Human acetyl-coA cholesterol acyltransferase mRNA: a 142-nucleotide sequence from Acinonyx jubatus. On this family, see Chen et al., Cell Res 2008: "RNA secondary structures located in the interchromosomal region of human ACAT1 chimeric mRNA are required to produce the 56-kDa isoform".
RNA sequence: UUGCGGCGGGGCUGAUUGCGCUGCCGGUCUUGGACCUCGGGAGAGCUGCCCGUAGCCCACCUUCCCGCCAGCCUCGCUGCGAGGGCUUCCCGGCUUUGGCGUUCUCGCCCGCUGUCGGGCUCCGGCCCCAGGUAAUGCAGAU
Numbered sequence: 001u002u003g004c005g006g007c008g009g010g011g012c013u014g015a016u017u018g019c020g021c022u023g024c025c026g027g028u029c030u031u032g033g034a035c036c037u038c039g040g041g042a043g044a045g046c047u048g049c050c051c052g053u054a055g056c057c058c059a060c061c062u063u064c065c066c067g068c069c070a071g072c073c074u075c076g077c078u079g080c081g082a083g084g085g086c087u088u089c090c091c092g093g094c095u096u097u098g099g100c101g102u103u104c105u106c107g108c109c110c111g112c113u114g115u116c117g118g119g120c121u122c123c124g125g126c127c128c129c130a131g132g133u134a135a136u137g138c139a140g141a142u
Base pairs, nucleotide, nucleotide: 013020014019037093038092040090041089042088044087045086046085049083051081052080053079054078055077057076060071098127099126100125107120108119109118110117111116
Source information: The match comes from Rfam's covariance-model search (41 bits). The family's RNA type in Rfam is cis-regulatory element. Taxonomically the source falls in Acinonyx (Eukaryota, Chordata, Mammalia, Theria).